[Rfam]
RNA sequence: CGCAGGCAAGCGCAAGGCUUGUAGAGGUCGCUGGUAACAGCGACAGCCCGCACGGGUGGGAUCCUCGAACUUGGGGCCUGCACUACU
Numbered sequence: 001c002g003c004a005g006g007c008a009a010g011c012g013c014a015a016g017g018c019u020u021g022u023a024g025a026g027g028u029c030g031c032u033g034g035u036a037a038c039a040g041c042g043a044c045a046g047c048c049c050g051c052a053c054g055g056g057u058g059g060g061a062u063c064c065u066c067g068a069a070c071u072u073g074g075g076g077c078c079u080g081c082a083c084u085a086c087u
Stems, first nucleotide, its partner, number of pairs: 002081006011074001013073004022068001024066003027044007047056003
RNA: DUF3800-VII RNA